RNA sequence: CACACAAAGCACGUGAUGACAAAAUACUGCAACUGACUGUAUGAAGUACCUUCAAUCCAACACUGAGCUUUGUGUC
Numbered sequence: 001c002a003c004a005c006a007a008a009g010c011a012c013g014u015g016a017u018g019a020c021a022a023a024a025u026a027c028u029g030c031a032a033c034u035g036a037c038u039g040u041a042u043g044a045a046g047u048a049c050c051u052u053c054a055a056u057c058c059a060a061c062a063c064u065g066a067g068c069u070u071u072g073u074g075u076c
Stems, first nucleotide, its partner, number of pairs: 002075009

About this RNA:
Rfam assigns this 76-nucleotide sequence from Mohoua ochrocephala to the family "Small nucleolar RNA SNORD69". Rfam 15.1 lists 524 matches to the family in 496 species. Rfam links the family to the GO terms RNA processing and nucleolus. Rfam describes the family as follows. snoRNA HBII-210 belongs to the C/D family of snoRNAs. It is the human orthologue of the mouse MBII-210 and is predicted to guide the 2'O-ribose methylation of large 28S rRNA on residue G4464. A reference for the family is Huttenhofer et al. (2001), "RNomics: an experimental approach that identifies 201 candidates for novel, small, non-messenger RNAs in mouse", EMBO J.